[Rfam]
Notes: This 70-nucleotide sequence from Scyliorhinus torazame belongs to the Rfam family "mir-33 microRNA precursor family". The source organism's lineage runs through Eukaryota, Gnathostomata, Galeomorphii, Carcharhiniformes and Scyliorhinus. Pairs were carried over by alignment from the consensus structure, which was predicted with PFOLD. The match comes from Rfam's covariance-model search (67 bits).

RNA sequence: CUGUGGUGCAUUGUAGUUGCAUUGCAUGUGCCAGCGAUGUUGUGCAAUGUGUCUGCAGUGCAAUGCAAAG
Numbered sequence: 001c002u003g004u005g006g007u008g009c010a011u012u013g014u015a016g017u018u019g020c021a022u023u024g025c026a027u028g029u030g031c032c033a034g035c036g037a038u039g040u041u042g043u044g045c046a047a048u049g050u051g052u053c054u055g056c057a058g059u060g061c062a063a064u065g066c067a068a069a070g
Stems, first nucleotide, its partner, number of pairs: 001070002004067001006066001007062010019050001021048007